[Rfam]
RNA sequence: UGAUAGCAAUGAAGUGUGAGGUUGCCGAUGUAAUCGGGUAUAAUUCCACAGAGCGAAUGUCAAGUUCAAUGAAACUGGCGACAA
Numbered sequence: 001u002g003a004u005a006g007c008a009a010u011g012a013a014g015u016g017u018g019a020g021g022u023u024g025c026c027g028a029u030g031u032a033a034u035c036g037g038g039u040a041u042a043a044u045u046c047c048a049c050a051g052a053g054c055g056a057a058u059g060u061c062a063a064g065u066u067c068a069a070u071g072a073a074a075c076u077g078g079c080g081a082c083a084a
Base pairs, nucleotide, nucleotide: 014049015048016047018046019045020044025037026036027035028034029033058083059082060081061080064079065078066077
The family of this 84-nucleotide RNA from Natranaerovirga pectinivora is "S10-Clostridia ribosomal protein leader". The family's RNA type in Rfam is cis-regulatory leader. The organism belongs to Natranaerovirga, within Bacteria.